[Rfam]
RNA sequence: UCCUUAUCAAGAGUCAGGGGAGGAACUGGUCCUACGAUCCUGCGGCAACCAUCCUAUUUGUGAUAAACAAAUGCGAAAAGGUGCUAAUUCCAGCAAAUGUUCAACAUUUGAGAGAUGAGGA
Number, nucleotide and partner (000 for none) at each position: 001u121002c120003c119004u118005u117006a116007u115008c114009a000010a000011g000012a000013g043014u000015c042016a041017g040018g039019g000020g000021a000022g032023g031024a030025a000026c093027u092028g091029g090030u024031c023032c022033u000034a000035c000036g000037a000038u000039c018040c017041u016042g015043c013044g085045g084046c083047a082048a000049c081050c080051a000052u076053c075054c000055u000056a000057u000058u000059u000060g000061u000062g000063a000064u000065a000066a000067a000068c000069a000070a000071a000072u000073g000074c000075g053076a052077a000078a000079a000080g050081g049082u047083g046084c045085u044086a000087a000088u000089u113090c029091c028092a027093g026094c110095a109096a108097a107098u106099g105100u000101u000102c000103a000104a000105c099106a098107u097108u096109u095110g094111a000112g000113a089114g008115a007116u006117g005118a004119g003120g002121a001

SAM riboswitch aptamer (S box leader): a 121-nucleotide RNA sequence from Sporosarcina pasteurii. The base pairs follow the family's consensus structure, which is taken from published work.